[Rfam]
The family of this 75-nucleotide sequence from Crocodylus porosus is "Mammalian CPEB3 ribozyme".

RNA sequence: UUACAAGUUCAAGGCCGUAACAGAAGCGUUCAUGCUGCGGCCCUGUCAAAUUUCAAUGAAUCUGCAAAUUCUGCU
Dot-bracket structure: ............[[[[..(.((((((((.......)))]]]]....((.((((....)))).))....))))).)